[Rfam]
RNA sequence: AUCGAGGCUAGAGUCAUGCUUGGGUAUUGGCUAUUGCCUCGGUGUGCCAGAGUCUUCAAAGAGUAGCUGCUGACCUUAUUCACUGGCUGUGGGCUUCAUGGCACAGUCACCAGGGUAGUAACAUGU
Numbered sequence: 001a002u003c004g005a006g007g008c009u010a011g012a013g014u015c016a017u018g019c020u021u022g023g024g025u026a027u028u029g030g031c032u033a034u035u036g037c038c039u040c041g042g043u044g045u046g047c048c049a050g051a052g053u054c055u056u057c058a059a060a061g062a063g064u065a066g067c068u069g070c071u072g073a074c075c076u077u078a079u080u081c082a083c084u085g086g087c088u089g090u091g092g093g094c095u096u097c098a099u100g101g102c103a104c105a106g107u108c109a110c111c112a113g114g115g116u117a118g119u120a121a122c123a124u125g126u
Stems, first nucleotide, its partner, number of pairs: 002059001004057003007053003013047001015046006023038004070118003074114003085108002088105004
Annotation:
Shown here is a 126-nucleotide RNA from Chinchilla lanigera, a member of the family "Small nucleolar RNA SNORA3/SNORA45 family". Rfam describes the family as follows. The members of this family belong to the H/ACA class of snoRNAs which are thought to guide the sites of modification of uridines to pseudouridines. It is annotated as an H/ACA-box small nucleolar RNA. It scores 81 bits against the family's covariance model.